[Rfam]
RNA: c-di-GMP-I riboswitch aptamer
Organism: Acholeplasma brassicae
RNA sequence: UUUUAAUCUCGGCAAAACUAGGGAAACCUAGUGACGCAAAGCUAUAGGGCCUAAAAAUGGUAGCCAGUUGCAUCU
Numbered sequence: 001u002u003u004u005a006a007u008c009u010c011g012g013c014a015a016a017a018c019u020a021g022g023g024a025a026a027c028c029u030a031g032u033g034a035c036g037c038a039a040a041g042c043u044a045u046a047g048g049g050c051c052u053a054a055a056a057a058u059g060g061u062a063g064c065c066a067g068u069u070g071c072a073u074c075u
Stems, first nucleotide, its partner, number of pairs: 012037002017032006040069004047065002049061003